The family of this 131-nucleotide RNA sequence from Astyanax mexicanus is "Small nucleolar RNA SNORA9".
Clan: SNORA9 clan.
It scores 108 bits against the family's covariance model.
The organism belongs to Astyanax, within Eukaryota.
Gene Ontology terms of the family: RNA processing and nucleolus.
Pairs were carried over by alignment from the consensus structure, which was predicted with PFOLD.
By type it is an H/ACA-box small nucleolar RNA.
From the family's description: ACA9 is a member of the H/ACA class of snoRNA that guide the sites of modification of uridines to pseudouridines.
[Rfam]
RNA sequence: GUGCAGGCUGUUCAGCAAGGUUGGGUCUACAGUGGCUCUGUCCUUUCCUGUAUGUCUGCUAGAGAGACAUUGAGGUGGUUUGAGGCCUGGCUGUUCUUUCUACAGCAAGGUUAUAGAAACCUCAUACAAAU
Numbered sequence: 001g002u003g004c005a006g007g008c009u010g011u012u013c014a015g016c017a018a019g020g021u022u023g024g025g026u027c028u029a030c031a032g033u034g035g036c037u038c039u040g041u042c043c044u045u046u047c048c049u050g051u052a053u054g055u056c057u058g059c060u061a062g063a064g065a066g067a068c069a070u071u072g073a074g075g076u077g078g079u080u081u082g083a084g085g086c087c088u089g090g091c092u093g094u095u096c097u098u099u100c101u102a103c104a105g106c107a108a109g110g111u112u113a114u115a116g117a118a119a120c121c122u123c124a125u126a127c128a129a130a131u
Stems, first nucleotide, its partner, number of pairs: 003059006018044003023038005071124005086110003090106002093103002